[Rfam]
RNA: c-di-AMP riboswitch aptamer (ydaO/yuaA leader)
Organism: Streptomyces xinghaiensis
RNA sequence: AGCAGAUCAGCGCGGCAGGAGCGGGGAAACCACAGACUGCCGUACCGCGCGCUCCGCCCGGUCCGGCUAGGGGUGAAGCCAAUUCCCGAAUACGCCCCGAGCGUCAGGGGAAUUGGCCGGGCAACUCCAGCCCGAAUCCGACAGCUAACCUCGCAGGCGUCGGAGAGGACGCAC
Numbered sequence: 001a002g003c004a005g006a007u008c009a010g011c012g013c014g015g016c017a018g019g020a021g022c023g024g025g026g027a028a029a030c031c032a033c034a035g036a037c038u039g040c041c042g043u044a045c046c047g048c049g050c051g052c053u054c055c056g057c058c059c060g061g062u063c064c065g066g067c068u069a070g071g072g073g074u075g076a077a078g079c080c081a082a083u084u085c086c087c088g089a090a091u092a093c094g095c096c097c098c099g100a101g102c103g104u105c106a107g108g109g110g111a112a113u114u115g116g117c118c119g120g121g122c123a124a125c126u127c128c129a130g131c132c133c134g135a136a137u138c139c140g141a142c143a144g145c146u147a148a149c150c151u152c153g154c155a156g157g158c159g160u161c162g163g164a165g166a167g168g169a170c171g172c173a174c
Base pairs, nucleotide, nucleotide: 003019021154022153023152024151025150026149031070071139072138073137079116080115081114082113083112084111085110086109087108119133120132121131122130